[Rfam]
A member of the RNA family "Soft rot Enterobacteriaceae Rev 39 5'UTR" from Pantoea vagans, 308 nucleotides long. Its family is annotated with cellular response to starvation in the Gene Ontology. It is annotated as a cis-regulatory element. The organism belongs to Pantoea, within Bacteria. Rfam describes the family as follows. From bacteria cultured under starvation conditions.
RNA sequence: AAUUAUUGUCAAUGACCGGAUAACUAUGGUAACUCUGUAGGUAUUACUUCGAACAAUCGAAAAAACAAACAACACAUGAAAGCCCUUCUACAAGUGAUUAGCCUAGUCGUGAUUAGCGUGGUGGUGAUUAUUAUCCCACCGUGCGGGGCAUCGCUUGGAGAAAGAAAGGCUUAAAAAUCAAGCCCGGAAUUCCAAAAACCCCCGCACCGAAAGGUCCGGGGGUUUUUUUUUGACCAGGCUAAAUAUCAGCGAAUCAGCGAGGAACAGAUUAUGAGCAGUAGCAUAAAAUUCUGUUGUUCCCCUAGGAA
Numbered sequence: 001a002a003u004u005a006u007u008g009u010c011a012a013u014g015a016c017c018g019g020a021u022a023a024c025u026a027u028g029g030u031a032a033c034u035c036u037g038u039a040g041g042u043a044u045u046a047c048u049u050c051g052a053a054c055a056a057u058c059g060a061a062a063a064a065a066c067a068a069a070c071a072a073c074a075c076a077u078g079a080a081a082g083c084c085c086u087u088c089u090a091c092a093a094g095u096g097a098u099u100a101g102c103c104u105a106g107u108c109g110u111g112a113u114u115a116g117c118g119u120g121g122u123g124g125u126g127a128u129u130a131u132u133a134u135c136c137c138a139c140c141g142u143g144c145g146g147g148g149c150a151u152c153g154c155u156u157g158g159a160g161a162a163a164g165a166a167a168g169g170c171u172u173a174a175a176a177a178u179c180a181a182g183c184c185c186g187g188a189a190u191u192c193c194a195a196a197a198a199c200c201c202c203c204g205c206a207c208c209g210a211a212a213g214g215u216c217c218g219g220g221g222g223u224u225u226u227u228u229u230u231u232g233a234c235c236a237g238g239c240u241a242a243a244u245a246u247c248a249g250c251g252a253a254u255c256a257g258c259g260a261g262g263a264a265c266a267g268a269u270u271a272u273g274a275g276c277a278g279u280a281g282c283a284u285a286a287a288a289u290u291c292u293g294u295u296g297u298u299c300c301c302c303u304a305g306g307a308a
Base pairs, nucleotide, nucleotide: 006032007031008030009029010028011027037073038072040070042068044065045064049060050059084262085261086260088257089256097244098243099242101239102238103237104236105231106230108118109117110116120140121139122138123137124136126135127134128133142159144157145156146155147154161191162190168185169184171182172181194227195226196225197224198223199222200221201220202219203218204217206215207214208213263295264294265293266292267291268290271284272283273282
Dot-bracket structure: .....((((((...............))))))....((.(.(.((...((........))...))..).).))..........(((.((.......(((.((((((.(((.....))).(((((.(((....)))))))).(.((((......)))).).((.....((.((........)).))....))..(((((((((((.(((....))).)))))))))))..))....))))..)))...........))..)))((((((..(((........))).....)))))).............